Record summary
The record is a 44-nucleotide sequence from Allobosea sp. Root381, which matches "Guanidine-II riboswitch aptamer (mini-ykkC)" in Rfam. Rfam's curators write: Simpler in structure and has fewer highly conserved nucleotide positions than the ykkC-yxkD leader. The family's consensus secondary structure is taken from published work. Gene Ontology term of the family: regulation of gene expression.
RNA sequence: GCCGCGGGACGACCCGUGGCCCCAGACGCAAAGGGGACGGCCCC
Numbered sequence: 001g002c003c004g005c006g007g008g009a010c011g012a013c014c015c016g017u018g019g020c021c022c023c024a025g026a027c028g029c030a031a032a033g034g035g036g037a038c039g040g041c042c043c044c
Stems, first nucleotide, its partner, number of pairs: 001020008033044004